This 104-nucleotide RNA sequence from Magnetospirillum sp. SS-4 belongs to the Rfam family "Glycine riboswitch aptamer". It scores 62 bits against the family's covariance model. The source organism's lineage runs through Bacteria, Pseudomonadati, Rhodospirillales, Rhodospirillaceae and Magnetospirillum. This family represents the bacterial glycine riboswitch.
[Rfam]
RNA sequence: ACGAACCCCGUGGGAGAGACCGCCCCCGCCCGCAAGGGCCGAAGGCGGCGCCGAAGGAGCAACCGCCCCUGGAAACUCUCAGGCAAACGGACCGCGGGGGGAUG
Numbered sequence: 001a002c003g004a005a006c007c008c009c010g011u012g013g014g015a016g017a018g019a020c021c022g023c024c025c026c027c028g029c030c031c032g033c034a035a036g037g038g039c040c041g042a043a044g045g046c047g048g049c050g051c052c053g054a055a056g057g058a059g060c061a062a063c064c065g066c067c068c069c070u071g072g073a074a075a076c077u078c079u080c081a082g083g084c085a086a087a088c089g090g091a092c093c094g095c096g097g098g099g100g101g102a103u104g
Base pairs, nucleotide, nucleotide: 006099007098008097009096010095011094012093013092020048021047022046023045050084051083052082053080054079057078058077059076063071